[Rfam]
RNA sequence: CCUGAAAAGACUAUGAUGUUCACCUUCCAAGCACAUAUCUGAUACAGUAUGCUGUGGAAGACCCUAUGUUCUGAGUCUUUUCUGC
Numbered sequence: 001c002c003u004g005a006a007a008a009g010a011c012u013a014u015g016a017u018g019u020u021c022a023c024c025u026u027c028c029a030a031g032c033a034c035a036u037a038u039c040u041g042a043u044a045c046a047g048u049a050u051g052c053u054g055u056g057g058a059a060g061a062c063c064c065u066a067u068g069u070u071c072u073g074a075g076u077c078u079u080u081u082c083u084g085c
Stems, first nucleotide, its partner, number of pairs: 002084001004082003008078004